[Rfam]
RNA sequence: UGGCGCCCAACGUGGGGCUUGGAUACUGGGGACAACGCGAGGGAGAUGACAGAGGAGAAAGGGUGCGCACCCGCUAAAUCUCAAGCAAUUCAGAGAUGGGCCACAGGAACCUGCCGCGACCGAGCCGAAGGUAAGUCAAGCCGCCCGAAUCAUGGGGCAGGAAUUAAGCCAGCAUCAGAUUUAUGUCAUACAGUUAAGGGAAGCUCUCAAGACAAGAGGAGUAAAGGUUAAGACUGAGGAUUUAUUUCAUUUCUUUGAUUUUGUAAAGGACAUUUGUCCCU
Numbered sequence: 001u002g003g004c005g006c007c008c009a010a011c012g013u014g015g016g017g018c019u020u021g022g023a024u025a026c027u028g029g030g031g032a033c034a035a036c037g038c039g040a041g042g043g044a045g046a047u048g049a050c051a052g053a054g055g056a057g058a059a060a061g062g063g064u065g066c067g068c069a070c071c072c073g074c075u076a077a078a079u080c081u082c083a084a085g086c087a088a089u090u091c092a093g094a095g096a097u098g099g100g101c102c103a104c105a106g107g108a109a110c111c112u113g114c115c116g117c118g119a120c121c122g123a124g125c126c127g128a129a130g131g132u133a134a135g136u137c138a139a140g141c142c143g144c145c146c147g148a149a150u151c152a153u154g155g156g157g158c159a160g161g162a163a164u165u166a167a168g169c170c171a172g173c174a175u176c177a178g179a180u181u182u183a184u185g186u187c188a189u190a191c192a193g194u195u196a197a198g199g200g201a202a203g204c205u206c207u208c209a210a211g212a213c214a215a216g217a218g219g220a221g222u223a224a225a226g227g228u229u230a231a232g233a234c235u236g237a238g239g240a241u242u243u244a245u246u247u248c249a250u251u252u253c254u255u256u257g258a259u260u261u262u263g264u265a266a267a268g269g270a271c272a273u274u275u276g277u278c279c280c281u
Stems, first nucleotide, its partner, number of pairs: 006031003012026003036048002085132002090128002097123001099121001102118001104116001106114001140158002144156004166207001168204002216256006225243005266281001268279004
RNA: Mason-Pfizer monkey virus packaging signal
Organism: Nannospalax galili